[Rfam]
RNA sequence: UACUUUUGCACUCGAAUAGGAAAAACUUAUUCGAUACAUAAUAAUCAUUAAACAAUAUUAGCAUG
Numbered sequence: 001u002a003c004u005u006u007u008g009c010a011c012u013c014g015a016a017u018a019g020g021a022a023a024a025a026c027u028u029a030u031u032c033g034a035u036a037c038a039u040a041a042u043a044a045u046c047a048u049u050a051a052a053c054a055a056u057a058u059u060a061g062c063a064u065g
Stems, first nucleotide, its partner, number of pairs: 014032006
About this RNA:
Rfam assigns this 65-nucleotide RNA to the family "S15-Flavobacteria ribosomal protein leader". The family is grouped with related families in Rfam's "Ribosomal Protein S15 Leader clan". For this family Rfam cites "Discovery of 20 novel ribosomal leader candidates in bacteria and archaea" (Eckert and Weinberg, BMC Microbiol, 2020).